[Rfam]
RNA sequence: GGAAAUGCUAUGAGGAGAAUAGUAAGUUUUUGAAAGCUUUCAGAGAGAGAUUUCCUUGGGUGUAAGAAAUCUUAAGAAAUAGAAAACUGAAUUGCAUCUCUGAGCACUGCUCCGAAACUUUUAGUAGGAAGCAGCUGGAAAGCAAGUUACAGCUUUGAGGUAUGGUAGUACCAAUAAUUGAUGAGUUAUUAGUCAUAUUUUUGACUGAUAAACAGAGUGGAACCGCGGAAUUUACUUCUGCCUCUGUA
Numbered sequence: 001g002g003a004a005a006u007g008c009u010a011u012g013a014g015g016a017g018a019a020u021a022g023u024a025a026g027u028u029u030u031u032g033a034a035a036g037c038u039u040u041c042a043g044a045g046a047g048a049g050a051u052u053u054c055c056u057u058g059g060g061u062g063u064a065a066g067a068a069a070u071c072u073u074a075a076g077a078a079a080u081a082g083a084a085a086a087c088u089g090a091a092u093u094g095c096a097u098c099u100c101u102g103a104g105c106a107c108u109g110c111u112c113c114g115a116a117a118c119u120u121u122u123a124g125u126a127g128g129a130a131g132c133a134g135c136u137g138g139a140a141a142g143c144a145a146g147u148u149a150c151a152g153c154u155u156u157g158a159g160g161u162a163u164g165g166u167a168g169u170a171c172c173a174a175u176a177a178u179u180g181a182u183g184a185g186u187u188a189u190u191a192g193u194c195a196u197a198u199u200u201u202u203g204a205c206u207g208a209u210a211a212a213c214a215g216a217g218u219g220g221a222a223c224c225g226c227g228g229a230a231u232u233u234a235c236u237u238c239u240g241c242c243u244c245u246g247u248a
Stems, first nucleotide, its partner, number of pairs: 007105002015100004025088006038077003049071006108133004112128002135146002188209007214245004225241005
Dot-bracket structure: ......((......((((......((((((.......(((........((((((...........))))))...))).....))))))........))))...))..((((((.............)).)))).((........)).........................................(((((((........)))))))....((((.......(((((.......)))))))))...
A member of the RNA family "T-box leader" from Clostridium oryzae, 248 nucleotides long. Uncharged tRNA acts as the effector for transcription antitermination of genes in the T-box leader family. T-boxes are found upstream of many aminoacyl-tRNA synthetase genes and some amino acid biosynthetic genes usually in Gram-positive bacteria. The anticodon of a specific tRNA base pairs to a specifier sequence within the T-box motif, and the NCCA acceptor tail of the tRNA base pairs to a conserved bulge in the T-box antiterminator hairpin. Its family is annotated with tRNA binding in the Gene Ontology. Rfam classes the family as a cis-regulatory leader. The literature on the family includes a 1994 paper in J Bacteriol by Grundy et al., "Interaction between the acceptor end of tRNA and the T box stimulates antitermination in the Bacillus subtilis tyrS gene: a new role for the discriminator base".